[Rfam]
RNA sequence: AGCUGUUCCCCUCUGGAGGUUCAUACCUUCAAACUCACGGGCCGCGGUUUUUCCGGCGGCCCUUUUUUCUUCCGCGC
Numbered sequence: 001a002g003c004u005g006u007u008c009c010c011c012u013c014u015g016g017a018g019g020u021u022c023a024u025a026c027c028u029u030c031a032a033a034c035u036c037a038c039g040g041g042c043c044g045c046g047g048u049u050u051u052u053c054c055g056g057c058g059g060c061c062c063u064u065u066u067u068u069c070u071u072c073c074g075c076g077c
Stems, first nucleotide, its partner, number of pairs: 008018001010016002039062007047054001
Shown here is a 77-nucleotide RNA sequence from Ensifer fredii, a member of the family "Makes More Granules Regulator RNA (mmgR)".
The sequence is in the family's curated seed alignment.
Clan: suhB sRNA clan.
Rfam classes the family as a small RNA.